A member of the RNA family "U4 spliceosomal RNA" from Trichophyton interdigitale, 144 nucleotides long. Rfam 15.1 lists 32,178 matches to the family in 2,547 species. A search with the family's covariance model found it, with a score of 91 bits. The organism belongs to Trichophyton, within Eukaryota. By type it is a spliceosomal small nuclear RNA.
[Rfam]
RNA sequence: AUCCGAGUGCAAGGGUUUUACGUUUCCAGUGAAGGUUCGCCUGAGGCAACGUUUUUGCUAGUUGAAAACUACAAACCAAUGACCGCUCUAGUUGGUCUUCGGAUCGGCUGGGAAUUUUUGAAGAACUUCUCUACAACAGAUAGU
Numbered sequence: 001a002u003c004c005g006a007g008u009g010c011a012a013g014g015g016u017u018u019u020a021c022g023u024u025u026c027c028a029g030u031g032a033a034g035g036u037u038c039g040c041c042u043g044a045g046g047c048a049a050c051g052u053u054u055u056u057g058c059u060a061g062u063u064g065a066a067a068a069c070u071a072c073a074a075a076c077c078a079a080u081g082a083c084c085g086c087u088c089u090a091g092u093u094g095g096u097c098u099u100c101g102g103a104u105c106g107g108c109u110g111g112g113a114a115u116u117u118u119u120g121a122a123g124a125a126c127u128u129c130u131c132u133a134c135a136a137c138a139g140a141u142a143g144u
Base pairs, nucleotide, nucleotide: 020052021051022050023049024048026046027045033042034041035040087112088111089110090109091108092107093106094105095104096103097102125144126143127142